[Rfam]
RNA: Ribosomal protein L20 leader
RNA sequence: GAGAACAAGAAGAAGCUCGCGCUUCUCGCCUAAGUUAGACAACCUCUGGGCUAAUCGAUAUUUUCUGUUGAUUAAGCGCGGGUUUUGAUGCCCGCGCUUUUCUUGUCCU
Numbered sequence: 001g002a003g004a005a006c007a008a009g010a011a012g013a014a015g016c017u018c019g020c021g022c023u024u025c026u027c028g029c030c031u032a033a034g035u036u037a038g039a040c041a042a043c044c045u046c047u048g049g050g051c052u053a054a055u056c057g058a059u060a061u062u063u064u065c066u067g068u069u070g071a072u073u074a075a076g077c078g079c080g081g082g083u084u085u086u087g088a089u090g091c092c093c094g095c096g097c098u099u100u101u102c103u104u105g106u107c108c109u
Base pairs, nucleotide, nucleotide: 011026012025013024014023015022016021028051029050030049033045034044035042036041077096078095079094080093081092082091083090